RNA sequence: GAGCUGUGAGGAAAUUGGCUUUAGCGUUGGUUGGGUCCUUCGCAUUCUUCUGACUUAACAGAUGGACAUAUGGCCUAAGUCUGAGCUC
Numbered sequence: 001g002a003g004c005u006g007u008g009a010g011g012a013a014a015u016u017g018g019c020u021u022u023a024g025c026g027u028u029g030g031u032u033g034g035g036u037c038c039u040u041c042g043c044a045u046u047c048u049u050c051u052g053a054c055u056u057a058a059c060a061g062a063u064g065g066a067c068a069u070a071u072g073g074c075c076u077a078a079g080u081c082u083g084a085g086c087u088c
Stems, first nucleotide, its partner, number of pairs: 001088004

A member of the RNA family "small nucleolar RNA snoR114" from Capsella rubella, 88 nucleotides long. For this family Rfam cites "Mining small RNA sequencing data: a new approach to identify small nucleolar RNAs in Arabidopsis" (Chen and Wu, Nucleic Acids Res, 2009). Gene Ontology terms of the family: RNA processing and nucleolus. The family has 24 seed sequences and 1,645 matches in Rfam 15.1.